[Rfam]
RNA sequence: AUGUUUUUCAUGGUAUUAGAUUUAAGGUUAGUGAAGAUUGUUUGUCGUGAGACAAGCGAUUUUUAAAAA
Numbered sequence: 001a002u003g004u005u006u007u008u009c010a011u012g013g014u015a016u017u018a019g020a021u022u023u024a025a026g027g028u029u030a031g032u033g034a035a036g037a038u039u040g041u042u043u044g045u046c047g048u049g050a051g052a053c054a055a056g057c058g059a060u061u062u063u064u065a066a067a068a069a
Stems, first nucleotide, its partner, number of pairs: 040057007
Bacteroidetes FopS (family of paralogous sRNAs): a 69-nucleotide RNA from Alloprevotella rava. From the family's description: The RNA-binding protein RbpB and BTncRNA_FopS sRNA are involved in the post-transcription regulation of polysaccharide utilisation loci (PUL). FopS sRNAs function as post-transcriptional repressors by binding to the vicinity of the start codon of the first mRNA of target PUL polycistrons, typically corresponding to the cognate SusC homolog, impeding translation of the respective glycan transporter. On this family, see Ruttiger et al., Nat Commun 2025: "The global RNA-binding protein RbpB is a regulator of polysaccharide utilization in Bacteroides thetaiotaomicron". It is annotated as a small RNA. Gene Ontology term of the family: sRNA-mediated gene silencing. Taxonomically the source falls in Alloprevotella rava (Bacteria, Pseudomonadati, Bacteroidota, Prevotellaceae). A search with the family's covariance model found it, with a score of 64 bits.